[Rfam]
Nucleotides: 099
Stems, first nucleotide, its partner, number of pairs: 001099005010086006017079003020075003026057002029055007040092003044088001061072004
Number, partner (000 for none) and nucleotide at each position: 001099a002098g003097c004096a005095g006000a007000g008000u009000a010086a011085g012084a013083u014082c015081c016000c017079a018078u019077g020075c021074g022073u023000a024000a025000a026057g027056u028000g029055c030054c031053a032052u033051c034050u035049g036000a037000a038000c039000a040092g041091g042090g043000a044088g045000u046000u047000g048000a049035c050034a051033g052032a053031u054030g055029g056027a057026c058000g059000a060000a061072a062071a063070g064069u065000a066000g067000u068000a069064a070063c071062u072061u073022g074021c075020g076000a077019u078018a079017u080000u081015g082014g083013a084012u085011c086010u087000g088044c089000a090042u091041c092040c093000c094000g095005c096004u097003g098002c099001u